[Rfam]
RNA sequence: CUACAAUGAUAGUUAAUAUUUUCCAUCAAUAGUAAUUCACCUAGUGAGUGUUGAUACUUUGAAUCUGAGUGA
Numbered sequence: 001c002u003a004c005a006a007u008g009a010u011a012g013u014u015a016a017u018a019u020u021u022u023c024c025a026u027c028a029a030u031a032g033u034a035a036u037u038c039a040c041c042u043a044g045u046g047a048g049u050g051u052u053g054a055u056a057c058u059u060u061g062a063a064u065c066u067g068a069g070u071g072a
Stems, first nucleotide, its partner, number of pairs: 002071003008027003
Annotation: Small nucleolar RNA SNORD56: a 72-nucleotide RNA sequence from Urocitellus parryii. The family's consensus secondary structure was predicted with PFOLD. The match comes from Rfam's covariance-model search (73 bits). On this family, see Galardi et al., Mol Cell Biol 2002: "Purified box C/D snoRNPs are able to reproduce site-specific 2'-O-methylation of target RNA in vitro". NCBI's taxonomy places the organism under Eukaryota, Dipnotetrapodomorpha, Tetrapoda, Marmotini, Urocitellus. The family's RNA type in Rfam is C/D-box small nucleolar RNA.